This 150-nucleotide RNA sequence from Enterovibrio calviensis belongs to the Rfam family "DABA-DC-AT RNA". The organism belongs to Enterovibrio calviensis, within Bacteria.

RNA sequence: ACAAUCUCGAACAUCAGUUUUUCGGGGCACACGUGACAAUCUGUAAAUUCACAGAAUGUUGCAAGUAGGUACUGGAGAUUUCACUCCAGUAGAAGGGCAUUGAUAGAGCUGUCCGGCCGAGAGGUUAGGGGCAUAUUGAGGAACCCAACA
Numbered sequence: 001a002c003a004a005u006c007u008c009g010a011a012c013a014u015c016a017g018u019u020u021u022u023c024g025g026g027g028c029a030c031a032c033g034u035g036a037c038a039a040u041c042u043g044u045a046a047a048u049u050c051a052c053a054g055a056a057u058g059u060u061g062c063a064a065g066u067a068g069g070u071a072c073u074g075g076a077g078a079u080u081u082c083a084c085u086c087c088a089g090u091a092g093a094a095g096g097g098c099a100u101u102g103a104u105a106g107a108g109c110u111g112u113c114c115g116g117c118c119g120a121g122a123g124g125u126u127a128g129g130g131g132c133a134u135a136u137u138g139a140g141g142a143a144c145c146c147a148a149c150a
Stems, first nucleotide, its partner, number of pairs: 006026006033062006041054003070091008112129002115126004

By type it is a cis-regulatory element.